[Rfam]
RNA sequence: CGGUACCACUGGGGGUGCACGGGAAACGUGCUGAGAGAGGCUGCGCCUCAACCCUUUGAACUUGACCUGGAUGAUACCAGCGUAAGAAAGUGGGGGCCGACCGUA
Numbered sequence: 001c002g003g004u005a006c007c008a009c010u011g012g013g014g015g016u017g018c019a020c021g022g023g024a025a026a027c028g029u030g031c032u033g034a035g036a037g038a039g040g041c042u043g044c045g046c047c048u049c050a051a052c053c054c055u056u057u058g059a060a061c062u063u064g065a066c067c068u069g070g071a072u073g074a075u076a077c078c079a080g081c082g083u084a085a086g087a088a089a090g091u092g093g094g095g096g097c098c099g100a101c102c103g104u105a
Base pairs, nucleotide, nucleotide: 006093007092008091009090010089011055012054013053014052017031018030019029020028021027038048039047040046041045061086062085063084064083067080068079069078070077
About this RNA:
Shown here is a 105-nucleotide RNA sequence from Melghirimyces thermohalophilus, a member of the family "TPP riboswitch aptamer (THI element)". The source organism's lineage runs through Bacteria, Bacillati, Bacillota, Caryophanales and Melghirimyces. From the family's description: Vitamin B(1) in its active form thiamin pyrophosphate (TPP) is an essential coenzyme that is synthesised by coupling of pyrimidine and thiazole moieties in bacteria. It scores 80 bits against the family's covariance model. Its family is annotated with thiamine pyrophosphate binding in the Gene Ontology.